Overview
The record is a 206-nucleotide RNA sequence from Nocardioides antri, which matches "Actinobacteria sRNA Ms_IGR-5" in Rfam. By type it is a small RNA. NCBI's taxonomy places the organism under Bacteria, Bacillati, Actinomycetota, Nocardioidaceae, Nocardioides.
RNA sequence: ACACGAGAAAGGAGGUGAUCCGAGGAAUGAGUUCCUAUAGGACGCGUGAGGUGGUUGCCGGUUAGGCGACCCCAGCGACGGGGUGGGAUCACCCCGAUCUCUGAUGCCGGGCUGCCGGCCAAUCCACAGCAGCCACCCGACCCGCAGGCGAACCGGGCACGUCCCCCGGUGCGGUCCUCACGGACCACGCCUGCGGGUCGCUCCUU
Numbered sequence: 001a002c003a004c005g006a007g008a009a010a011g012g013a014g015g016u017g018a019u020c021c022g023a024g025g026a027a028u029g030a031g032u033u034c035c036u037a038u039a040g041g042a043c044g045c046g047u048g049a050g051g052u053g054g055u056u057g058c059c060g061g062u063u064a065g066g067c068g069a070c071c072c073c074a075g076c077g078a079c080g081g082g083g084u085g086g087g088a089u090c091a092c093c094c095c096g097a098u099c100u101c102u103g104a105u106g107c108c109g110g111g112c113u114g115c116c117g118g119c120c121a122a123u124c125c126a127c128a129g130c131a132g133c134c135a136c137c138c139g140a141c142c143c144g145c146a147g148g149c150g151a152a153c154c155g156g157g158c159a160c161g162u163c164c165c166c167c168g169g170u171g172c173g174g175u176c177c178u179c180a181c182g183g184a185c186c187a188c189g190c191c192u193g194c195g196g197g198u199c200g201c202u203c204c205u206u
Base pairs, nucleotide, nucleotide: 014059015058016057017056018055019054060120061119062118063117065116066115067114070111071110072109138200139199140198141197142196143195144194145193146192147191148190149189150188152170153169154168155167156166157165